[Rfam]
RNA sequence: CUGCAUGUUCAUCCAAGAGCUGUGGCUCCGCCGUGGCCCCAGCUCUCCAACAACAUGCGAGAGCAUCAGGAAGGUCUUUGACUGCUCGGCCUCCUCUGCCCGUAGCUGUCACUCACCCCUCCUAUAGGC
Numbered sequence: 001c002u003g004c005a006u007g008u009u010c011a012u013c014c015a016a017g018a019g020c021u022g023u024g025g026c027u028c029c030g031c032c033g034u035g036g037c038c039c040c041a042g043c044u045c046u047c048c049a050a051c052a053a054c055a056u057g058c059g060a061g062a063g064c065a066u067c068a069g070g071a072a073g074g075u076c077u078u079u080g081a082c083u084g085c086u087c088g089g090c091c092u093c094c095u096c097u098g099c100c101c102g103u104a105g106c107u108g109u110c111a112c113u114c115a116c117c118c119c120u121c122c123u124a125u126a127g128g129c
Stems, first nucleotide, its partner, number of pairs: 013042001019037006069122003073118002084109002087102001088100002
A member of the RNA family "Small nucleolar RNA SNORA44" from Penelope pileata, 129 nucleotides long. For this family Rfam cites "RNomics: an experimental approach that identifies 201 candidates for novel, small, non-messenger RNAs in mouse" (Huttenhofer et al., EMBO J, 2001). Gene Ontology terms of the family: nucleolus and RNA processing. It scores 78 bits against the family's covariance model. ACA44 is a member of the H/ACA class of snoRNA that guide the sites of modification of uridines to pseudouridines.